RNA: ZMP/ZTP riboswitch aptamer (pfl RNA motif)
Organism: Ramlibacter albus
RNA sequence: GGCGGCGUGCGCGACUGGCGAUAGGCGCGGCCCCUUCGGCCGCCGCUGACGUGGGUUCACCACUGGGAAGCGCACCGCGGAACCACCGCGAUCCGCCGUUCGCCUGGGCAGCCCUG
Numbered sequence: 001g002g003c004g005g006c007g008u009g010c011g012c013g014a015c016u017g018g019c020g021a022u023a024g025g026c027g028c029g030g031c032c033c034c035u036u037c038g039g040c041c042g043c044c045g046c047u048g049a050c051g052u053g054g055g056u057u058c059a060c061c062a063c064u065g066g067g068a069a070g071c072g073c074a075c076c077g078c079g080g081a082a083c084c085a086c087c088g089c090g091a092u093c094c095g096c097c098g099u100u101c102g103c104c105u106g107g108g109c110a111g112c113c114c115u116g
Stems, first nucleotide, its partner, number of pairs: 003079002007075006015067002017104005051063004093111001095109003